[Rfam]
RNA: mir-27 microRNA precursor family
RNA sequence: AGCAGGUGCAGAGCUUAGCUGAAUUGGUGAACAGUGAUUUAGUUCCUCUUUUGUUCACAGUGGCUAAGUUCUGCCUCUGAG
Numbered sequence: 001a002g003c004a005g006g007u008g009c010a011g012a013g014c015u016u017a018g019c020u021g022a023a024u025u026g027g028u029g030a031a032c033a034g035u036g037a038u039u040u041a042g043u044u045c046c047u048c049u050u051u052u053g054u055u056c057a058c059a060g061u062g063g064c065u066a067a068g069u070u071c072u073g074c075c076u077c078u079g080a081g
Stems, first nucleotide, its partner, number of pairs: 011071010027058007